[Rfam]
RNA sequence: CCUUAGACCGCUAAAGCAGCGCGUCAUGGUUUUCAACAUUAGAGAAGGUGCAAGCCAUCAUUUGCUGCUCUAGAGUUUUAAGG
Numbered sequence: 001c002c003u004u005a006g007a008c009c010g011c012u013a014a015a016g017c018a019g020c021g022c023g024u025c026a027u028g029g030u031u032u033u034c035a036a037c038a039u040u041a042g043a044g045a046a047g048g049u050g051c052a053a054g055c056c057a058u059c060a061u062u063u064g065c066u067g068c069u070c071u072a073g074a075g076u077u078u079u080a081a082g083g
Base pairs, nucleotide, nucleotide: 001083002082003081004080005079006078013071015069016068017067018066019065020064021063023061024060026058027057028056029055030054031053032052034050035049

Background
Rfam assigns this 83-nucleotide RNA from Danio rerio to the family "mir-15 microRNA precursor family". Rfam's curators put it in the seed alignment. The family is grouped with related families in Rfam's "mir-15 clan". Gene Ontology terms of the family: miRNA-mediated post-transcriptional gene silencing and RISC complex. The family's consensus secondary structure was predicted with RNAalifold. Rfam describes the family as follows. This family represents the related mir-15a and mir-15b sequences.